[Rfam]
Nucleotides: 048
Base pairs, nucleotide, nucleotide: 009038010037011036012035021033022032023031024030
Number, partner (000 for none) and nucleotide at each position: 001000a002000g003000a004000u005000u006000g007000g008000u009038a010037g011036c012035u013000g014000c015000a016000a017000c018000g019000a020000a021033g022032u023031g024030u025000u026000u027000c028000g029000c030024a031023c032022a033021c034000g035012g036011g037010c038009u039000u040000u041000c042000a043000a044000c045000u046000a047000c048000c
Rfam assigns this 48-nucleotide RNA sequence to the family "ssnA RNA". Rfam's curators put it in the seed alignment. The family's RNA type in Rfam is cis-regulatory element. The base pairs follow the family's consensus structure, which is taken from published work.